[Rfam]
RNA sequence: AAAAGCUACUAGAGGUGCCUGUUACAGGCUGAGAGAAAAGCACAGGGCUUUUCAACUCUUUGAACCUGAUCUGGUUGAUACCAGCGUAGGAAAGUAGAGCGUUUAUUGA
Numbered sequence: 001a002a003a004a005g006c007u008a009c010u011a012g013a014g015g016u017g018c019c020u021g022u023u024a025c026a027g028g029c030u031g032a033g034a035g036a037a038a039a040g041c042a043c044a045g046g047g048c049u050u051u052u053c054a055a056c057u058c059u060u061u062g063a064a065c066c067u068g069a070u071c072u073g074g075u076u077g078a079u080a081c082c083a084g085c086g087u088a089g090g091a092a093a094g095u096a097g098a099g100c101g102u103u104u105a106u107u108g109a
Base pairs, nucleotide, nucleotide: 006097007096008095009094010093011059012058013057014056017029018028019027020026021025036052037051038050039049040048065090066089067088068087071084072083073082074081
RNA: TPP riboswitch aptamer (THI element)